[Rfam]
RNA sequence: GCGAGAUGAUGAUAAAAUUCAUGGUCUGUCAACUGAAUUCUGUGAUGUGACUCUUGAAUCUCAACAUGUUCUGAUCGC
Numbered sequence: 001g002c003g004a005g006a007u008g009a010u011g012a013u014a015a016a017a018u019u020c021a022u023g024g025u026c027u028g029u030c031a032a033c034u035g036a037a038u039u040c041u042g043u044g045a046u047g048u049g050a051c052u053c054u055u056g057a058a059u060c061u062c063a064a065c066a067u068g069u070u071c072u073g074a075u076c077g078c
Stems, first nucleotide, its partner, number of pairs: 001078004
Shown here is a 78-nucleotide RNA sequence from Papaver nudicaule, a member of the family "Small nucleolar RNA snoR14". Clan: SNORD110 clan. Gene Ontology terms of the family: RNA processing and nucleolus. The organism belongs to Papaver, within Eukaryota. A reference for the family is Brown et al. (2001), "Multiple snoRNA gene clusters from Arabidopsis", RNA.